The family of this 389-nucleotide RNA from Mycobacterium sp. shizuoka-1 is "Bacterial RNase P class A". A search with the family's covariance model found it, with a score of 285 bits. By type it is a ribozyme.
RNA sequence: CGAGUUGGCCGGGCGGCCGCGGCGUGAGUCGAGGAAAGUCCGGACUUCACAGAGCAGGGUGAUUGCUAACGGCAAUCCGAGGUGACUCGCGGGACAGUGCCACAGAAAGCAAACCGCCUCCCGUCAGGGAGGUAAGGGUGAAACGGUGCGGUAAGAGCGCACCAGCAUCCCGGGUGACCGGGAUGGCUCGGUAAACCCCACCCGAAGCAAGGCCAAGAGGCCGCACCUGGUGCGGCUGCGCAGGCGUCCGAGGGCUGCUCGCCCGAGCCUGCGGGUAGGCCGCUCGAGGCACCCGGCGACGGUGUGCCCAGAUGGAUGGUCGCCACCGCCCUGCCGCGGUCAACCGCGGCGAGGCGGGACAGAAUCCGGCUUACAGGCCAACUCGUUCG
Numbered sequence: 001c002g003a004g005u006u007g008g009c010c011g012g013g014c015g016g017c018c019g020c021g022g023c024g025u026g027a028g029u030c031g032a033g034g035a036a037a038g039u040c041c042g043g044a045c046u047u048c049a050c051a052g053a054g055c056a057g058g059g060u061g062a063u064u065g066c067u068a069a070c071g072g073c074a075a076u077c078c079g080a081g082g083u084g085a086c087u088c089g090c091g092g093g094a095c096a097g098u099g100c101c102a103c104a105g106a107a108a109g110c111a112a113a114c115c116g117c118c119u120c121c122c123g124u125c126a127g128g129g130a131g132g133u134a135a136g137g138g139u140g141a142a143a144c145g146g147u148g149c150g151g152u153a154a155g156a157g158c159g160c161a162c163c164a165g166c167a168u169c170c171c172g173g174g175u176g177a178c179c180g181g182g183a184u185g186g187c188u189c190g191g192u193a194a195a196c197c198c199c200a201c202c203c204g205a206a207g208c209a210a211g212g213c214c215a216a217g218a219g220g221c222c223g224c225a226c227c228u229g230g231u232g233c234g235g236c237u238g239c240g241c242a243g244g245c246g247u248c249c250g251a252g253g254g255c256u257g258c259u260c261g262c263c264c265g266a267g268c269c270u271g272c273g274g275g276u277a278g279g280c281c282g283c284u285c286g287a288g289g290c291a292c293c294c295g296g297c298g299a300c301g302g303u304g305u306g307c308c309c310a311g312a313u314g315g316a317u318g319g320u321c322g323c324c325a326c327c328g329c330c331c332u333g334c335c336g337c338g339g340u341c342a343a344c345c346g347c348g349g350c351g352a353g354g355c356g357g358g359a360c361a362g363a364a365u366c367c368g369g370c371u372u373a374c375a376g377g378c379c380a381a382c383u384c385g386u387u388c389g
Stems, first nucleotide, its partner, number of pairs: 001385010011374001012324007020031004036372003040369005045207004052260004057203005062076005077091001078089004092198002097196002099192003114137002116133007145163006165187001166185008211281004240272006252264004288308005293302003
Ribonuclease P (RNase P) is a ubiquitous endoribonuclease, found in archaea, bacteria and eukarya as well as chloroplasts and mitochondria. Its best characterised activity is the generation of mature 5'-ends of tRNAs by cleaving the 5'-leader elements of precursor-tRNAs. Cellular RNase Ps are ribonucleoproteins. RNA from bacterial RNase Ps retains its catalytic activity in the absence of the protein subunit, i.e. it is a ribozyme.